[Rfam]
RNA sequence: UGCAUCGGUUAACGAGGCGUUAAGCUUUCCAAAGCAUUAUCGGGGAUAGUCCAGCUUCUGGACGCGAGUGGCACCUGUCACUCUGUUUGACGCCUCCCUGUCUUCACCUAUCGAGCCGCCCAUGGGCGGCUCUUUUUUG
Numbered sequence: 001u002g003c004a005u006c007g008g009u010u011a012a013c014g015a016g017g018c019g020u021u022a023a024g025c026u027u028u029c030c031a032a033a034g035c036a037u038u039a040u041c042g043g044g045g046a047u048a049g050u051c052c053a054g055c056u057u058c059u060g061g062a063c064g065c066g067a068g069u070g071g072c073a074c075c076u077g078u079c080a081c082u083c084u085g086u087u088u089g090a091c092g093c094c095u096c097c098c099u100g101u102c103u104u105c106a107c108c109u110a111u112c113g114a115g116c117c118g119c120c121c122a123u124g125g126g127c128g129g130c131u132c133u134u135u136u137u138u139g
Base pairs, nucleotide, nucleotide: 001045003043005015006014016038017037021036026031049063050062051061052060066083067082068081069080070079089102090101091100092099113132114131115130116129117128118127119126120125
Shown here is a 139-nucleotide RNA from Ancylobacter defluvii, a member of the family "Alphaproteobacterial sRNA BjrC1505". The family's RNA type in Rfam is small RNA. On this family, see Madhugiri et al., RNA Biol 2012: "Small RNAs of the Bradyrhizobium/Rhodopseudomonas lineage and their analysis". The match comes from Rfam's covariance-model search (88 bits).